[Rfam]
RNA sequence: GAGCAAUGAUGAGCGAAGUAGACUGAACUGGUAUUGCUGAGACUCUGUCUCUGCUCUGACCAGGGCAUGAUCACAUAAUCUUCUCUCUGAGCUU
Numbered sequence: 001g002a003g004c005a006a007u008g009a010u011g012a013g014c015g016a017a018g019u020a021g022a023c024u025g026a027a028c029u030g031g032u033a034u035u036g037c038u039g040a041g042a043c044u045c046u047g048u049c050u051c052u053g054c055u056c057u058g059a060c061c062a063g064g065g066c067a068u069g070a071u072c073a074c075a076u077a078a079u080c081u082u083c084u085c086u087c088u089g090a091g092c093u094u
Stems, first nucleotide, its partner, number of pairs: 001093001003092002036054002039051001
Source information
Rfam assigns this 94-nucleotide RNA from Alca torda to the family "Z30 small nucleolar RNA". Pairs were carried over by alignment from the consensus structure, which was predicted with PFOLD. Rfam classes the family as a C/D-box small nucleolar RNA. The organism belongs to Alca, within Eukaryota. The literature on the family includes a 2002 paper in Mol Cell Biol by Galardi et al., "Purified box C/D snoRNPs are able to reproduce site-specific 2'-O-methylation of target RNA in vitro".